[Rfam]
RNA sequence: GGAAGUGUGUGUCUGUAUCGACACGUCUGAACAUCCGAUCGCUAGUUCACAGCAGAUCUGCUCAGCACUGGUGUCACUAUCAGUCUCUCACACUUGUGUCUCCCGUUUGCACUCUUUGUCCGCACGGUUUGAGACUCACAGGGUUUCAGGGAAUCGGACCCCCCUUUAGAUAAGCUUACGGGGGGUUUAGGCCUCGAGUCCGCCUUUAAGACACUUCCAUGUAUUGGCCCCAUAGGUGUUGGGUUGCCUUCCUUUUG
Numbered sequence: 001g002g003a004a005g006u007g008u009g010u011g012u013c014u015g016u017a018u019c020g021a022c023a024c025g026u027c028u029g030a031a032c033a034u035c036c037g038a039u040c041g042c043u044a045g046u047u048c049a050c051a052g053c054a055g056a057u058c059u060g061c062u063c064a065g066c067a068c069u070g071g072u073g074u075c076a077c078u079a080u081c082a083g084u085c086u087c088u089c090a091c092a093c094u095u096g097u098g099u100c101u102c103c104c105g106u107u108u109g110c111a112c113u114c115u116u117u118g119u120c121c122g123c124a125c126g127g128u129u130u131g132a133g134a135c136u137c138a139c140a141g142g143g144u145u146u147c148a149g150g151g152a153a154u155c156g157g158a159c160c161c162c163c164c165u166u167u168a169g170a171u172a173a174g175c176u177u178a179c180g181g182g183g184g185g186u187u188u189a190g191g192c193c194u195c196g197a198g199u200c201c202g203c204c205u206u207u208a209a210g211a212c213a214c215u216u217c218c219a220u221g222u223a224u225u226g227g228c229c230c231c232a233u234a235g236g237u238g239u240u241g242g243g244u245u246g247c248c249u250u251c252c253u254u255u256u257g
Stems, first nucleotide, its partner, number of pairs: 001218008015077002019073001027065003032060002037058004041053003226248003229243004
Dot-bracket structure: ((((((((......((..(.......(((..((...(((((((.......))).))))))..))).......)..)).....................................................................................................................................)))))))).......(((((((.......))))..))).........

The family of this 257-nucleotide sequence from Medioppia subpectinata is "Arthropod 7SK RNA". The family is grouped with related families in Rfam's "7SK clan". The source organism's lineage runs through Eukaryota, Ecdysozoa, Sarcoptiformes, Brachypylina and Medioppia. The family's RNA type in Rfam is non-coding RNA gene.